Source information:
Small Cajal body specific RNA 3: a 139-nucleotide sequence from Dipodomys ordii. scaRNAs are a specific class of small nuclear RNAs which localise to the Cajal bodies and guide the modification of RNA polymerase II transcribed spliceosomal RNAs U1, U2, U4, U5 and U12. It scores 143 bits against the family's covariance model. Rfam links the family to the GO terms RNA processing, Cajal body and nucleolus. Rfam classes the family as a small Cajal body RNA. For this family Rfam cites "Cajal body-specific small nuclear RNAs: a novel class of 2'-O-methylation and pseudouridylation guide RNAs" (Darzacq et al., EMBO J, 2002).
RNA sequence: AAUGGAAGCUGCAAGAACCAUCCAUGUGGACAAAUGAGGAGUACCCUUUGUCUGCAGAUAGCAGCAUCCUACAUAAACAUGGAGGUCUCUGUCUGACUUGGCACAGCUGGCUAAGUCUGAUCGUUCCCCUCCAGACACU
Numbered sequence: 001a002a003u004g005g006a007a008g009c010u011g012c013a014a015g016a017a018c019c020a021u022c023c024a025u026g027u028g029g030a031c032a033a034a035u036g037a038g039g040a041g042u043a044c045c046c047u048u049u050g051u052c053u054g055c056a057g058a059u060a061g062c063a064g065c066a067u068c069c070u071a072c073a074u075a076a077a078c079a080u081g082g083a084g085g086u087c088u089c090u091g092u093c094u095g096a097c098u099u100g101g102c103a104c105a106g107c108u109g110g111c112u113a114a115g116u117c118u119g120a121u122c123g124u125u126c127c128c129c130u131c132c133a134g135a136c137a138c139u
Stems, first nucleotide, its partner, number of pairs: 004069003008065005025056007036048003081132005089123001091121003095117007